[Rfam]
RNA sequence: GCCUAGGGUAGAGGUGCUGUAACUAAGAGUAGUCAUAGGGAGCGGGCACGCUGUGAUAUAUGAUAAAAGGGGUUACAGCCGAAGGAAAAAUAUUUUGCUGGUAUUUUUCCUGGCUUUGCAUAGAAUAUAUGCAUGGCUGUCAUCAAAGAUUUGGUGGAGAGCUACAAGGUUC
Numbered sequence: 001g002c003c004u005a006g007g008g009u010a011g012a013g014g015u016g017c018u019g020u021a022a023c024u025a026a027g028a029g030u031a032g033u034c035a036u037a038g039g040g041a042g043c044g045g046g047c048a049c050g051c052u053g054u055g056a057u058a059u060a061u062g063a064u065a066a067a068a069g070g071g072g073u074u075a076c077a078g079c080c081g082a083a084g085g086a087a088a089a090a091u092a093u094u095u096u097g098c099u100g101g102u103a104u105u106u107u108u109c110c111u112g113g114c115u116u117u118g119c120a121u122a123g124a125a126u127a128u129a130u131g132c133a134u135g136g137c138u139g140u141c142a143u144c145a146a147a148g149a150u151u152u153g154g155u156g157g158a159g160a161g162c163u164a165c166a167a168g169g170u171u172c
Stems, first nucleotide, its partner, number of pairs: 008165004016079009032064006039057001083111012112138004117133006140157007
Dot-bracket structure: .......((((....(((((((((.......((((((.(.................).))))))......)))))))))...((((((((((((.....))))))))))))((((.((((((.....)))))).)))).(((((((....)))))))....)))).......